Rfam assigns this 138-nucleotide sequence from Flavonifractor plautii to the family "Molybdenum/Tungsten riboswitch aptamer (Moco RNA motif)". The source organism's lineage runs through Bacteria, Bacillati, Eubacteriales, Flavonifractor and Flavonifractor plautii. The family's consensus secondary structure is taken from published work. On this family, see Regulski et al., Mol Microbiol 2008: "in molybdenum cofactor and tungsten cofactor metabolism".
RNA sequence: AAAUGUAUACUGUUCCGAGUCCGUCCGCCUACGGGGUGACCUAGGGCUGGCGGACCGAUGGCCCCGGCUGGGGCCGCAGGGUGCCGCGGGAAACGGCGGUGCCUUCCGUGUUUGAAAAGGAACGACAGUCCGCGGCGG
Numbered sequence: 001a002a003a004u005g006u007a008u009a010c011u012g013u014u015c016c017g018a019g020u021c022c023g024u025c026c027g028c029c030u031a032c033g034g035g036g037u038g039a040c041c042u043a044g045g046g047c048u049g050g051c052g053g054a055c056c057g058a059u060g061g062c063c064c065c066g067g068c069u070g071g072g073g074c075c076g077c078a079g080g081g082u083g084c085c086g087c088g089g090g091a092a093a094c095g096g097c098g099g100u101g102c103c104u105u106c107c108g109u110g111u112u113u114g115a116a117a118a119g120g121a122a123c124g125a126c127a128g129u130c131c132g133c134g135g136c137g138g
Stems, first nucleotide, its partner, number of pairs: 011124006019055007027047003033042003059076005079104009089094001105115002